The record is a 184-nucleotide RNA from Firmicutes bacterium CAG:110, which matches "malK-I RNA" in Rfam. The sequence is in the family's curated seed alignment. Pairs were carried over by alignment from the consensus structure, which is taken from published work. The source organism's lineage runs through Bacteria, Bacillati and Bacillota. Rfam classes the family as a cis-regulatory element.
[Rfam]
RNA sequence: CCAGGUGGAUUCUGUCUACUCCACAUAAUAGACAGAAUACCGCUAAAAUAAAGGAGGAUAAACCCGUCUGACGCACGGUGCGGCAGUGUGGAGACCUGUCGUAAUGCUCCCGGAAUAUUGCUUUCCGGUCAGUGAGAACGCAUGCGAAAAUGGUAGGUGCGUUCGGCGUCGAAACAGUAUGGCA
Numbered sequence: 001c002c003a004g005g006u007g008g009a010u011u012c013u014g015u016c017u018a019c020u021c022c023a024c025a026u027a028a029u030a031g032a033c034a035g036a037a038u039a040c041c042g043c044u045a046a047a048a049u050a051a052a053g054g055a056g057g058a059u060a061a062a063c064c065c066g067u068c069u070g071a072c073g074c075a076c077g078g079u080g081c082g083g084c085a086g087u088g089u090g091g092a093g094a095c096c097u098g099u100c101g102u103a104a105u106g107c108u109c110c111c112g113g114a115a116u117a118u119u120g121c122u123u124u125c126c127g128g129u130c131a132g133u134g135a136g137a138a139c140g141c142a143u144g145c146g147a148a149a150a151u152g153g154u155a156g157g158u159g160c161g162u163u164c165g166g167c168g169u170c171g172a173a174a175c176a177g178u179a180u181g182g183c184a
Stems, first nucleotide, its partner, number of pairs: 007040001009038010064078004069171006079103008088095002106133003110128004136164008